The record is a 54-nucleotide sequence from Salmo trutta, which matches "UnaL2 LINE 3' element" in Rfam. A search with the family's covariance model found it, with a score of 55 bits. The eel long interspersed element (LINE) UnaL2 and its partner short interspersed element (SINE) share a conserved 3' tail containing a stem-loop that is critical for their retrotransposition. Presumably, the first step of retrotransposition is the recognition of their 3' tails by UnaL2-encoded reverse transcriptase. The solution structure of a 17-nucleotide RNA derived from the 3' tail of UnaL2 was determined by NMR. Rfam links the family to the GO term transposition, RNA-mediated. The family's consensus secondary structure is taken from published work. On this family, see Baba et al., RNA 2004: "Solution structure of an RNA stem-loop derived from the 3' conserved region of eel LINE UnaL2".
RNA sequence: AACCUUAGUUAAUGUAAGUUGCUCUGGACAAGAGCGUCUGCUAAAUGACCAAAA
Numbered sequence: 001a002a003c004c005u006u007a008g009u010u011a012a013u014g015u016a017a018g019u020u021g022c023u024c025u026g027g028a029c030a031a032g033a034g035c036g037u038c039u040g041c042u043a044a045a046u047g048a049c050c051a052a053a054a
Stems, first nucleotide, its partner, number of pairs: 013043001014041003020036006